[Rfam]
RNA sequence: UGAUACCAGGGUCAAUAAGUCAACAAUCGUUUCUGCUUGCAGAAUAAGAUUGUUGACUUAUUGACCCGCCACACAUGAGGAAGUAGCGAUUUUCCUUGGAAAAUCCGCGGAUUCCGAAUGUGUGUAGAAUUGCGGGAGUUGCCCAGCAACGGAGCAAUUCGUGUAUCA
Numbered sequence: 001u002g003a004u005a006c007c008a009g010g011g012u013c014a015a016u017a018a019g020u021c022a023a024c025a026a027u028c029g030u031u032u033c034u035g036c037u038u039g040c041a042g043a044a045u046a047a048g049a050u051u052g053u054u055g056a057c058u059u060a061u062u063g064a065c066c067c068g069c070c071a072c073a074c075a076u077g078a079g080g081a082a083g084u085a086g087c088g089a090u091u092u093u094c095c096u097u098g099g100a101a102a103a104u105c106c107g108c109g110g111a112u113u114c115c116g117a118a119u120g121u122g123u124g125u126a127g128a129a130u131u132g133c134g135g136g137a138g139u140u141g142c143c144c145a146g147c148a149a150c151g152g153a154g155c156a157a158u159u160c161g162u163g164u165a166u167c168a
Base pairs, nucleotide, nucleotide: 001168002167003166004165005164006163010066011065012064013063016060017059018058019057020056021055022054023053024052025051026050027049028048030046031044032043033042034041035040070124071123072122073121074120075119076118079115080114081113082112086108087107088105089104090103091102092101093100094099127160128159129158130157131156132155133154138150139149140148141147
Dot-bracket structure: ((((((...((((..(((((((((((((.((((((....))))).).)))))))))))))..))))...(((((((..((((...(((((((((....))))))).))...))))..)))))))..(((((((....((((.....))))...)))))))..))))))

This 168-nucleotide RNA from Roseburia zhanii belongs to the Rfam family "Clostridiales-1 RNA". By type it is a small RNA.